[Rfam]
RNA: Eukaryotic large subunit ribosomal RNA, nucleotides 4364 to 4963
Organism: Acipenser ruthenus
RNA sequence: AAAGAAGACCCUGUUGAGCUUGACUCUAGUCUGGCACUGUGAAGAGACAUGAGAGGUGUAGAAUAAGUGGGAGGCCUCGGCCGCGUGUGAAAUACCACUACUCUUAUCGUUUUUUCACUUACCCGGUGAGACGGGGAGGUGAGUCCCGAGCGGCUCUCGAUUCUGGUGUGAAGCGGCCGGCACCCCGCCGGCCGCGACCCGCUCCGGGGACAGUGGCAGGUGGGGAGUUUGACUGGGGCGGUACACCUGUCAAACGGUAACGCAGGUGUCCUAAGGCGAGCUCAGGGAGGACAGAAACCUCCCGUAGAGCAGAAGGGCAAAAGCUCGCUUGAUCUUGAUUUUCAGUAUGAAUACAGACCGUGAAAGCGGGGCCUCACGAUCCUUCUGGCUUUUUGGGUUUUAAGCAGGAGGUGUCAGAAAAGUUACCACAGGGAUAACUGGCUUGUGGCGGCCAAGCGUUCAUAGCGACGUCGCUUUUUGAUCCUUCGAUGUCGGCUCGUCCUAUCGUUGUGAAGCAGAAUUCAGCAAGCGGUGGAUUGUUCAAGGACUAAUAGGGAACGUGAGCUGGGUUUAGACCGUCGUGAGACAGGUUAGUUUUAC
Numbered sequence: 001a002a003a004g005a006a007g008a009c010c011c012u013g014u015u016g017a018g019c020u021u022g023a024c025u026c027u028a029g030u031c032u033g034g035c036a037c038u039g040u041g042a043a044g045a046g047a048c049a050u051g052a053g054a055g056g057u058g059u060a061g062a063a064u065a066a067g068u069g070g071g072a073g074g075c076c077u078c079g080g081c082c083g084c085g086u087g088u089g090a091a092a093u094a095c096c097a098c099u100a101c102u103c104u105u106a107u108c109g110u111u112u113u114u115u116c117a118c119u120u121a122c123c124c125g126g127u128g129a130g131a132c133g134g135g136g137a138g139g140u141g142a143g144u145c146c147c148g149a150g151c152g153g154c155u156c157u158c159g160a161u162u163c164u165g166g167u168g169u170g171a172a173g174c175g176g177c178c179g180g181c182a183c184c185c186c187g188c189c190g191g192c193c194g195c196g197a198c199c200c201g202c203u204c205c206g207g208g209g210a211c212a213g214u215g216g217c218a219g220g221u222g223g224g225g226a227g228u229u230u231g232a233c234u235g236g237g238g239c240g241g242u243a244c245a246c247c248u249g250u251c252a253a254a255c256g257g258u259a260a261c262g263c264a265g266g267u268g269u270c271c272u273a274a275g276g277c278g279a280g281c282u283c284a285g286g287g288a289g290g291a292c293a294g295a296a297a298c299c300u301c302c303c304g305u306a307g308a309g310c311a312g313a314a315g316g317g318c319a320a321a322a323g324c325u326c327g328c329u330u331g332a333u334c335u336u337g338a339u340u341u342u343c344a345g346u347a348u349g350a351a352u353a354c355a356g357a358c359c360g361u362g363a364a365a366g367c368g369g370g371g372c373c374u375c376a377c378g379a380u381c382c383u384u385c386u387g388g389c390u391u392u393u394u395g396g397g398u399u400u401u402a403a404g405c406a407g408g409a410g411g412u413g414u415c416a417g418a419a420a421a422g423u424u425a426c427c428a429c430a431g432g433g434a435u436a437a438c439u440g441g442c443u444u445g446u447g448g449c450g451g452c453c454a455a456g457c458g459u460u461c462a463u464a465g466c467g468a469c470g471u472c473g474c475u476u477u478u479u480g481a482u483c484c485u486u487c488g489a490u491g492u493c494g495g496c497u498c499g500u501c502c503u504a505u506c507g508u509u510g511u512g513a514a515g516c517a518g519a520a521u522u523c524a525g526c527a528a529g530c531g532g533u534g535g536a537u538u539g540u541u542c543a544a545g546g547a548c549u550a551a552u553a554g555g556g557a558a559c560g561u562g563a564g565c566u567g568g569g570u571u572u573a574g575a576c577c578g579u580c581g582u583g584a585g586a587c588a589g590g591u592u593a594g595u596u597u598u599a600c
Base pairs, nucleotide, nucleotide: 002598003597010432011431012430013429015428016427017424018423019422020421021420023228024227025226026225030220031219032218033217035215036214039118040117041116042115043114044113045112046111047110048109049107050106051105052104053103054102055101066099067098068097069096070095073082074081122208123207124206125205126204132201133200134199135198141156142155143154144153145152173195174194175193176192177191178190179189180188231244232242233241234240245267246266247265248264249263250262270371271370276328277327278326279325280324281323282308283307285303286302287301288300289299290298309318310317333357334356335355338352339351340350341349359368360367361366382410383409384408385407386406387405390404391403392402441482443480445479447475448474449473450472451471452470456466457465493568494566495565496564497563498560500556501555502554503553506531507530511524512523513522514521533547537543574592575591576590577589578587579586580585